The family of this 113-nucleotide RNA from Cocleimonas flava is "SAH (S-adenosyl-L-homocysteine) riboswitch aptamer".
[Rfam]
RNA sequence: UUGCUUGAGGAGCGUUGCAAUCCGAUAUUUUUUUCAAAAUAUUAGACUAGGCUCAAGCUAAUUAGACAGACCGUGACGGCUGUUUAAUGAAUAUGCAACGACGCUCAGCUAAU
Numbered sequence: 001u002u003g004c005u006u007g008a009g010g011a012g013c014g015u016u017g018c019a020a021u022c023c024g025a026u027a028u029u030u031u032u033u034u035c036a037a038a039a040u041a042u043u044a045g046a047c048u049a050g051g052c053u054c055a056a057g058c059u060a061a062u063u064a065g066a067c068a069g070a071c072c073g074u075g076a077c078g079g080c081u082g083u084u085u086a087a088u089g090a091a092u093a094u095g096c097a098a099c100g101a102c103g104c105u106c107a108g109c110u111a112a113u
Stems, first nucleotide, its partner, number of pairs: 003058006021046002024043007
Its family is annotated with S-adenosylhomocysteine metabolic process and regulation of gene expression in the Gene Ontology. The match comes from Rfam's covariance-model search (44 bits).